The record is a 130-nucleotide sequence from Geococcyx californianus, which matches "Small nucleolar RNA SNORA24" in Rfam.
The family has 5 seed sequences and 852 matches in Rfam 15.1.
About the family: ACA24 is a member of the H/ACA class of snoRNA that guide the sites of modification of uridines to pseudouridines.
Taxonomically the source falls in Geococcyx (Eukaryota, Dinosauria, Theropoda, Otidimorphae).
By type it is an H/ACA-box small nucleolar RNA.
RNA sequence: AUCCAUGACUCCAUGGGGGCUGUCGACCGUGGCUGUCUCCCUUCCUAGGCAUGGAAGAGCAGUUCUUGCUAAUUGGCAAAGCUCCUACCCCCCUGUGGGUAGUAGUCGUUGACUGUAGCAAGUAACAGAC
Numbered sequence: 001a002u003c004c005a006u007g008a009c010u011c012c013a014u015g016g017g018g019g020c021u022g023u024c025g026a027c028c029g030u031g032g033c034u035g036u037c038u039c040c041c042u043u044c045c046u047a048g049g050c051a052u053g054g055a056a057g058a059g060c061a062g063u064u065c066u067u068g069c070u071a072a073u074u075g076g077c078a079a080a081g082c083u084c085c086u087a088c089c090c091c092c093c094u095g096u097g098g099g100u101a102g103u104a105g106u107c108g109u110u111g112a113c114u115g116u117a118g119c120a121a122g123u124a125a126c127a128g129a130c
Stems, first nucleotide, its partner, number of pairs: 002055006015041004020035001022033003067127002070124001073121003076116002079114001082105002087100004